[Rfam]
RNA sequence: ACCACUGAGCCACCUUCCCAGCCCCAGAAGUUGGUAUUUUAAAUGUGUUUCAGGGCUGGGAAGGUGGCUCAGUGGU
Number, nucleotide and partner (000 for none) at each position: 001a000002c075003c074004a073005c072006u071007g070008a069009g068010c067011c066012a065013c064014c063015u062016u061017c060018c059019c058020a057021g056022c055023c054024c053025c000026a000027g000028a000029a000030g000031u000032u000033g000034g000035u000036a000037u000038u000039u000040u000041a000042a000043a000044u000045g000046u000047g000048u000049u000050u000051c000052a000053g024054g023055g022056c021057u020058g019059g018060g017061a016062a015063g014064g013065u012066g011067g010068c009069u008070c007071a006072g005073u004074g003075g002076u000
This 76-nucleotide sequence from Dipodomys ordii belongs to the Rfam family "mir-3473 microRNA precursor family". The organism belongs to Dipodomys, within Eukaryota. Rfam links the family to the GO terms cellular response to mechanical stimulus, miRNA-mediated post-transcriptional gene silencing and RISC complex.